[Rfam]
RNA sequence: UCAGGCUGUGAUUGUCCAAACGCAAUUCUUGUGUAAUGGACAGCAAGAACUGUGUAUGGACAUCAAUGCUUGA
Numbered sequence: 001u002c003a004g005g006c007u008g009u010g011a012u013u014g015u016c017c018a019a020a021c022g023c024a025a026u027u028c029u030u031g032u033g034u035a036a037u038g039g040a041c042a043g044c045a046a047g048a049a050c051u052g053u054g055u056a057u058g059g060a061c062a063u064c065a066a067u068g069c070u071u072g073a
Stems, first nucleotide, its partner, number of pairs: 002072005009065004014061005021054004026049006